[Rfam]
RNA sequence: GCCGAUGCCAAUUGGGUCGGCAUGGUCAGGGAGCGCCACGCUUCUUGGCGCUUCCUCGUAUCUAUGUUGCUCUACGGAGGAUGUAGCUAUGAGAA
Numbered sequence: 001g002c003c004g005a006u007g008c009c010a011a012u013u014g015g016g017u018c019g020g021c022a023u024g025g026u027c028a029g030g031g032a033g034c035g036c037c038a039c040g041c042u043u044c045u046u047g048g049c050g051c052u053u054c055c056u057c058g059u060a061u062c063u064a065u066g067u068u069g070c071u072c073u074a075c076g077g078a079g080g081a082u083g084u085a086g087c088u089a090u091g092a093g094a095a
Stems, first nucleotide, its partner, number of pairs: 001021006008015002030054009055093006062086007070079003
The family of this 95-nucleotide RNA from Ensifer fredii is "Repression of heat shock gene expression (ROSE) element". This family represents a 5' UTR cis-regulatory element found in heat shock mRNAs and is known as the ROSE (repression of heat shock gene expression) element. The ROSE element is a negative regulator of heat shock gene expression. The secondary structure is thought to be regulated by temperature. This regulation blocks access to the ribosome binding site under normal conditions. The sequence is in the family's curated seed alignment. The base pairs follow the family's consensus structure, which is taken from published work. NCBI's taxonomy places the organism under Bacteria, Alphaproteobacteria, Hyphomicrobiales, Ensifer, Ensifer fredii. On this family, see Nocker et al., Nucleic Acids Res 2001: "A mRNA-based thermosensor controls expression of rhizobial heat shock genes".